[Rfam]
RNA sequence: UAGACGAAGGUGGGUAAGGGAAGUCGGCAAAAUAGAUCCGUAACUUCGGGAAAAGGAUUGGCUCUAAGGGUUGAUUUGAAGAAAACUAUUAAUGCUGUUAAUUUUUUGUAUUUUUGGAUGUUCCAAUCAGUAUGAAAAAGAAAACGAUAAAUUAAUAGGGAAUUUAGACUCAAGAAAAUUUUUUUUUUUUUUGUUUAAAUUUAUUUUUCAAAAACUUAACAACCAACUUAGAACUGGUACGGACAAAGGGAAUCCGACUGUUUAAUUAAAACAUAGCAUUGCGACGGCCGGAAACCGGUGUUAACGCAAUGUGAUUUCUGCCCAGUGCUCUGAAUGUCAAAGUGAAGAAAUUCAACGAAGCGCGGGUAAACGGCGGGAGUAACUAUGACUCUCUUAAGGUAGCCAAAUGCCUCGUCAUCUAAUUAGUGACGCGCAUGAAUGGAUCAACGAGAUUCCUACUGUCCCUACCCACCAUCUAGCGAAACCACAGCCAAGGGAACGGGCUUGGAAGA
Dot-bracket structure: ((((....((((((((.(((..............(((((....(....).....)))))((.(((((((((((.(((((((((..((.....(.((((((((((.((((.(((((...(((.(......).)))...))))).)))).)))))))).)).)....))....................................))))))))).......)))))..)))))).))(...).......(((((((((..(((.........)))..((((((((...((((.....)))).....))))))))...(((.(((..((((((.(..(((.....((((....)))).....))))))))..)))))((((((.......))))))(...)...............(((((.......)))))..........)))....)).)))))))....))).)))))))).))))............(((((........)))))....
RNA: Eukaryotic large subunit ribosomal RNA, nucleotides 2031 to 2542